[Rfam]
RNA sequence: UUCCCGCUUUCCUCCCUGAGCGGGAUGGCUCGAGCCCCCAAUCGAGCCGCGUUCUGCCCCGGGACACGGCCAUCCCCCCGAUGGUCCCCGGGGUUUUUUUU
Numbered sequence: 001u002u003c004c005c006g007c008u009u010u011c012c013u014c015c016c017u018g019a020g021c022g023g024g025a026u027g028g029c030u031c032g033a034g035c036c037c038c039c040a041a042u043c044g045a046g047c048c049g050c051g052u053u054c055u056g057c058c059c060c061g062g063g064a065c066a067c068g069g070c071c072a073u074c075c076c077c078c079c080g081a082u083g084g085u086c087c088c089c090g091g092g093g094u095u096u097u098u099u100u101u
Base pairs, nucleotide, nucleotide: 003024004023005022006021007020008019027048028047029046030045031044032043033042057093058092059091060090061089062088063087